[Rfam]
RNA: Rhodo-rpoB RNA
RNA sequence: AGCUCGGGAGCAGGCCGGUGGGACGGUCCGCAGGAAUGGAGCUUCAACCCCGUUUUCGCAUGCGGCGUGUGGCCGGAGCCCGACGGCCCGCGCG
Numbered sequence: 001a002g003c004u005c006g007g008g009a010g011c012a013g014g015c016c017g018g019u020g021g022g023a024c025g026g027u028c029c030g031c032a033g034g035a036a037u038g039g040a041g042c043u044u045c046a047a048c049c050c051c052g053u054u055u056u057c058g059c060a061u062g063c064g065g066c067g068u069g070u071g072g073c074c075g076g077a078g079c080c081c082g083a084c085g086g087c088c089c090g091c092g093c094g
Stems, first nucleotide, its partner, number of pairs: 001043005010031002013028005066094005071088005